RNA sequence: GAUAGGAGGAACCACUAUGAACGAAGUUCAUACUCGGAAUCGGUUCCGACGACCUGCCCCGCUCGCAUGUGCGAGAGGGGCAAUACAUAUU
Numbered sequence: 001g002a003u004a005g006g007a008g009g010a011a012c013c014a015c016u017a018u019g020a021a022c023g024a025a026g027u028u029c030a031u032a033c034u035c036g037g038a039a040u041c042g043g044u045u046c047c048g049a050c051g052a053c054c055u056g057c058c059c060c061g062c063u064c065g066c067a068u069g070u071g072c073g074a075g076a077g078g079g080g081c082a083a084u085a086c087a088u089a090u091u
Stems, first nucleotide, its partner, number of pairs: 008047006016032006056081005063074004
GA-cis RNA: a 91-nucleotide sequence. Rfam's curators put it in the seed alignment.